[Rfam]
RNA sequence: CCCAGCAGAGGUCACCCUCCAGACAGAUGCAUUGCUGUGAUGGUUACACUGCUGGGAGAGGAAUGUCCUCUCUUCUUCCUCCAGUUGCCUCUAACAGUGUUCUGCUGGCAUCUGGCACUGGUGCAGGGCAGAACCGUGCUUCUUUACCAUCGUGCUAAGCAUUCAUUUUGGCUUGGUUCUAGUGUGGGAGCACACACA
Number, nucleotide and partner (000 for none) at each position: 001c056002c055003c054004a053005g052006c051007a050008g049009a000010g000011g047012u046013c000014a000015c043016c042017c000018u040019c039020c037021a036022g035023a000024c034025a000026g000027a000028u000029g000030c000031a000032u000033u000034g024035c022036u021037g020038u000039g019040a018041u000042g016043g015044u000045u000046a012047c011048a000049c008050u007051g006052c005053u004054g003055g002056g001057a000058g000059a000060g000061g000062a000063a000064u000065g134066u133067c000068c131069u130070c000071u128072c127073u126074u000075c000076u000077u000078c000079c000080u123081c000082c121083a000084g000085u000086u115087g000088c000089c000090u000091c000092u000093a000094a000095c107096a106097g105098u104099g000100u000101u000102c000103u000104g098105c097106u096107g095108g000109c000110a000111u000112c000113u000114g000115g086116c000117a000118c000119u000120g000121g082122u000123g080124c000125a000126g073127g072128g071129c000130a069131g068132a000133a066134c065135c000136g193137u192138g191139c190140u189141u188142c187143u186144u000145u000146a000147c000148c000149a000150u000151c000152g179153u000154g177155c000156u175157a174158a173159g172160c171161a000162u000163u000164c000165a000166u000167u000168u000169u000170g000171g160172c159173u158174u157175g156176g000177u154178u000179c152180u000181a000182g000183u000184g000185u000186g143187g142188g141189a140190g139191c138192a137193c136194a000195c000196a000197c000198a000
This 198-nucleotide RNA sequence from Molossus molossus belongs to the Rfam family "Small nucleolar RNA SNORA74". About the family: U19 belongs to the H/ACA class of snoRNAs. snoRNAs bind a number of proteins (including dyskerin, Gar1p and Nop10p in the case of the H/ACA class) to form snoRNP complexes. This class are thought to guide the sites of modification of uridines to pseudouridines by forming direct base pairing interactions with substrate RNAs. Targets may include ribosomal and spliceosomal RNAs but the exact functions of many snoRNAs, including U19, are not confirmed. Co-precipitation of U19 snoRNA with RNase MRP RNA suggests that U19 may be involved in pre-rRNA processing. On this family, see Kiss et al., Mol Cell Biol 1996: "Characterization of the intron-encoded U19 RNA, a new mammalian small nucleolar RNA that is not associated with fibrillarin".